The record is a 102-nucleotide RNA sequence from Bacillus sp. FJAT-27231, which matches "Purine riboswitch aptamer" in Rfam. Rfam's curators write: Riboswitches are metabolite binding domains within certain messenger RNAs that serve as precision sensors for their corresponding targets. Allosteric rearrangement of mRNA structure is mediated by ligand binding, and this results in modulation of gene expression.
[Rfam]
RNA sequence: AUUAAAUCUUGAUGUACUCUUCGUAUAAUCUUGGGAAUAUGGCCCAAAAGUUUCUACCGAGCUGCCGUAAAUAGCUUGACUACGAGGUAACAAAUAGAUAGA
Numbered sequence: 001a002u003u004a005a006a007u008c009u010u011g012a013u014g015u016a017c018u019c020u021u022c023g024u025a026u027a028a029u030c031u032u033g034g035g036a037a038u039a040u041g042g043c044c045c046a047a048a049a050g051u052u053u054c055u056a057c058c059g060a061g062c063u064g065c066c067g068u069a070a071a072u073a074g075c076u077u078g079a080c081u082a083c084g085a086g087g088u089a090a091c092a093a094a095u096a097g098a099u100a101g102a
Stems, first nucleotide, its partner, number of pairs: 019087007029049001031047005058078007